Overview
Bacterial RNase P class A: a 381-nucleotide sequence from Rhodospirillaceae bacterium LM-1. The family's consensus secondary structure is taken from published work. Its family is annotated with tRNA processing, ribonuclease P activity and dimeric ribonuclease P complex in the Gene Ontology.
RNA sequence: CCAGAUGGUCAGGUGACCGCUGCCAGCGCAAGCUGGGAGAGGAAAGUCCGGGCUCCACGGAAACACGGUGCCGGGUAACGCCCGGCGGGGGCAACCCCAGGGAAAGUGCCACAGAGAGCUGAACCGCCGGUUUUAGAACCGGUAAGGGUGAAAAGGUGCGGUAAGAGCGCACCGCGCGACUGGCAACAGGAGCGGCAGGGCAAACCCCACCGGGAGCAAGGCCAAAUAGGGGCGGCACGCAGGCUUGCCUGCAAUCGCCGUUUUCGCGACCGCCGCCCGGGUCGGCUGCUUGAGGUGCCGGGCAAUCGGCACCCUAGAGGAAUGGUCACCCAGCGCCCGCAAGGGCGUGGACAGAACCCGGCUUACAGGCCAUCUGGCUAU
Numbered sequence: 001c002c003a004g005a006u007g008g009u010c011a012g013g014u015g016a017c018c019g020c021u022g023c024c025a026g027c028g029c030a031a032g033c034u035g036g037g038a039g040a041g042g043a044a045a046g047u048c049c050g051g052g053c054u055c056c057a058c059g060g061a062a063a064c065a066c067g068g069u070g071c072c073g074g075g076u077a078a079c080g081c082c083c084g085g086c087g088g089g090g091g092c093a094a095c096c097c098c099a100g101g102g103a104a105a106g107u108g109c110c111a112c113a114g115a116g117a118g119c120u121g122a123a124c125c126g127c128c129g130g131u132u133u134u135a136g137a138a139c140c141g142g143u144a145a146g147g148g149u150g151a152a153a154a155g156g157u158g159c160g161g162u163a164a165g166a167g168c169g170c171a172c173c174g175c176g177c178g179a180c181u182g183g184c185a186a187c188a189g190g191a192g193c194g195g196c197a198g199g200g201c202a203a204a205c206c207c208c209a210c211c212g213g214g215a216g217c218a219a220g221g222c223c224a225a226a227u228a229g230g231g232g233c234g235g236c237a238c239g240c241a242g243g244c245u246u247g248c249c250u251g252c253a254a255u256c257g258c259c260g261u262u263u264u265c266g267c268g269a270c271c272g273c274c275g276c277c278c279g280g281g282u283c284g285g286c287u288g289c290u291u292g293a294g295g296u297g298c299c300g301g302g303c304a305a306u307c308g309g310c311a312c313c314c315u316a317g318a319g320g321a322a323u324g325g326u327c328a329c330c331c332a333g334c335g336c337c338c339g340c341a342a343g344g345g346c347g348u349g350g351a352c353a354g355a356a357c358c359c360g361g362c363u364u365a366c367a368g369g370c371c372a373u374c375u376g377g378c379u380a381u
Stems, first nucleotide, its partner, number of pairs: 001377010012330007020039002023036005044364003048361005053216004061264003066212005071085005086100001087098004101207002106205002108201003124147002126143007155173006174196001175194003180189003220287004230278006255269004294313008